This 80-nucleotide RNA sequence from a Pseudomonadota bacterium belongs to the Rfam family "Group II catalytic intron D1-D4-1". The literature on the family includes a 2001 paper in Trends Genet by Bonen and Vogel, "The ins and outs of group II introns". Rfam's curators write: Group II introns are found in rRNA, tRNA and mRNA of organelles in fungi, plants and protists, and also in mRNA in bacteria. It scores 42 bits against the family's covariance model. The pairing is the family consensus, mapped onto this sequence.

RNA sequence: CCACUGAAGCUGUGAGGCUCCGGGAGAAUAUCAGAAGUCAGCAGCGGGCAUACUAAGACUGUUCGAUCCAGUCGAAGGCC
Numbered sequence: 001c002c003a004c005u006g007a008a009g010c011u012g013u014g015a016g017g018c019u020c021c022g023g024g025a026g027a028a029u030a031u032c033a034g035a036a037g038u039c040a041g042c043a044g045c046g047g048g049c050a051u052a053c054u055a056a057g058a059c060u061g062u063u064c065g066a067u068c069c070a071g072u073c074g075a076a077g078g079c080c
Stems, first nucleotide, its partner, number of pairs: 002024001004023003008019004039044001047080003057073005